[Rfam]
Phenylalanine leader peptide: a 125-nucleotide RNA sequence from Cedecea neteri. The organism belongs to Cedecea, within Bacteria. Rfam links the family to the GO term cellular amino acid metabolic process. A reference for the family is Zurawski et al. (1978), "Nucleotide sequence of the leader region of the phenylalanine operon of Escherichia coli", Proc Natl Acad Sci U S A.
RNA sequence: CAUGAAACUUUUCCCGUUUUUCUUCGCAUUCUUUUUUACCUUCCCCUGACUGGGAGGCAAUUCGUCGUGUGAUAAAGAAUGCGAAGACGAACAAACAAGCCUCCCAAGCGGGAGGCUUUUUUUAU
Numbered sequence: 001c002a003u004g005a006a007a008c009u010u011u012u013c014c015c016g017u018u019u020u021u022c023u024u025c026g027c028a029u030u031c032u033u034u035u036u037u038a039c040c041u042u043c044c045c046c047u048g049a050c051u052g053g054g055a056g057g058c059a060a061u062u063c064g065u066c067g068u069g070u071g072a073u074a075a076a077g078a079a080u081g082c083g084a085a086g087a088c089g090a091a092c093a094a095a096c097a098a099g100c101c102u103c104c105c106a107a108g109c110g111g112g113a114g115g116c117u118u119u120u121u122u123u124a125u
Stems, first nucleotide, its partner, number of pairs: 016092004021087014036072004042055004056066003097118009